[Rfam]
RNA sequence: UAGGUUUGUCCUAAGUAAAACAUCUUUAUGUUUGACCAACUCUAUAGAAAAUAUGUUAAUAUCUACAAAAUCAUACUAUAUAUAGCUUCAAUAUUUAUUUUAUGGUGAAACGAAUAUGAUGUUGUAGAUAUUGGUAUAUUUUUCUAUAGACUUGGUCAAAAUUAUAAAUGCUUGACUUAGGACAAGCAUAA
Numbered sequence: 001u002a003g004g005u006u007u008g009u010c011c012u013a014a015g016u017a018a019a020a021c022a023u024c025u026u027u028a029u030g031u032u033u034g035a036c037c038a039a040c041u042c043u044a045u046a047g048a049a050a051a052u053a054u055g056u057u058a059a060u061a062u063c064u065a066c067a068a069a070a071u072c073a074u075a076c077u078a079u080a081u082a083u084a085g086c087u088u089c090a091a092u093a094u095u096u097a098u099u100u101u102a103u104g105g106u107g108a109a110a111c112g113a114a115u116a117u118g119a120u121g122u123u124g125u126a127g128a129u130a131u132u133g134g135u136a137u138a139u140u141u142u143u144c145u146a147u148a149g150a151c152u153u154g155g156u157c158a159a160a161a162u163u164a165u166a167a168a169u170g171c172u173u174g175a176c177u178u179a180g181g182a183c184a185a186g187c188a189u190a191a
Base pairs, nucleotide, nucleotide: 005186006185007184008183009182011180012179013178014177015176016175018173019172021170022169023168025167026166031160032159033158034157035156045146046145047144048143049142050141051140054136055135056134058132059131060130061129062128063127064126065125066124067123071119072118073117074116075115077114
The record is a 191-nucleotide sequence from Hordeum vulgare, which matches "MIR1435 microRNA precursor family" in Rfam. Gene Ontology terms of the family: miRNA-mediated post-transcriptional gene silencing and RISC complex.